[Rfam]
RNA: mir-133 microRNA precursor family
Organism: Python bivittatus
RNA sequence: CUCCUGGGGCUGGUAAAAAGGAACCAGAUCGACUGGCAACUGAUUUGGUCCCCUUCAACCAGCUGGGGGGG
Numbered sequence: 001c002u003c004c005u006g007g008g009g010c011u012g013g014u015a016a017a018a019a020g021g022a023a024c025c026a027g028a029u030c031g032a033c034u035g036g037c038a039a040c041u042g043a044u045u046u047g048g049u050c051c052c053c054u055u056c057a058a059c060c061a062g063c064u065g066g067g068g069g070g071g
Stems, first nucleotide, its partner, number of pairs: 003069003008064007017055002020051003024048007
Dot-bracket structure: ..(((..(((((((..((.(((.(((((((...........))))))))))..))..)))))))..)))..